Rfam assigns this 121-nucleotide sequence from Thamnophis sirtalis to the family "Small nucleolar RNA SNORA32". Taxonomically the source falls in Thamnophis (Eukaryota, Metazoa, Chordata, Amniota). The family's consensus secondary structure was predicted with RNAfold. Rfam describes the family as follows. ACA32 is a member of the H/ACA class of snoRNA that guide the sites of modification of uridines to pseudouridines.

RNA sequence: UGGUCUCUACCAAGGCUGCUUGAAAAUCUUAUUUCUGGUAUGCUGUGGACGUGACCGCAAAGUAAUUCCUCUAGAUUUUUACAUUGCUGCCAUGGUAGCAACAAAUCUGGUGGGAACAUUA
Numbered sequence: 001u002g003g004u005c006u007c008u009a010c011c012a013a014g015g016c017u018g019c020u021u022g023a024a025a026a027u028c029u030u031a032u033u034u035c036u037g038g039u040a041u042g043c044u045g046u047g048g049a050c051g052u053g054a055c056c057g058c059a060a061a062g063u064a065a066u067u068c069c070u071c072u073a074g075a076u077u078u079u080u081a082c083a084u085u086g087c088u089g090c091c092a093u094g095g096u097a098g099c100a101a102c103a104a105a106u107c108u109g110g111u112g113g114g115a116a117c118a119u120u121a
Stems, first nucleotide, its partner, number of pairs: 003055003007051001010048003029042001069114003074107004085100003